Nucleotides: 081
Stems, first nucleotide, its partner, number of pairs: 001081001004077001011036002016031006034067001039074004044070003047065003
Number, partner (000 for none) and nucleotide at each position: 001081g002000u003000u004077g005000a006000u007000a008000a009000a010000g011036c012035c013000a014000c015000a016031a017030c018029c019028g020027u021026c022000g023000c024000g025000a026021g027020g028019c029018g030017g031016u032000g033000u034067c035012g036011g037000a038000a039074a040073g041072c042071c043000a044070c045069g046068g047065g048064u049063c050000u051000c052000c053000a054000c055000g056000a057000a058000a059000g060000a061000g062000a063049g064048a065047c066000a067034g068046c069045c070044g071042g072041g073040u074039u075000a076000c077004c078000u079000g080000c081001u

About this RNA:
The family of this 81-nucleotide RNA from Candidatus Electrothrix aarhusensis is "c-di-GMP-I-GGC riboswitch aptamer". NCBI's taxonomy places the organism under Bacteria, Pseudomonadati, Thermodesulfobacteriota, Desulfobulbia, Candidatus Electrothrix. It scores 61 bits against the family's covariance model.